[Rfam]
RNA sequence: UCAAUGAAAAGGCAAACUUAUCGAAAGAUAAGGACGCAAAGCCAUGUGUCUAAAGAAUUUAAUUCUAUGAUCGACAGGCUGCCAUA
Numbered sequence: 001u002c003a004a005u006g007a008a009a010a011g012g013c014a015a016a017c018u019u020a021u022c023g024a025a026a027g028a029u030a031a032g033g034a035c036g037c038a039a040a041g042c043c044a045u046g047u048g049u050c051u052a053a054a055g056a057a058u059u060u061a062a063u064u065c066u067a068u069g070a071u072c073g074a075c076a077g078g079c080u081g082c083c084a085u086a
Stems, first nucleotide, its partner, number of pairs: 012037002017032006040080004045076003048071003055065004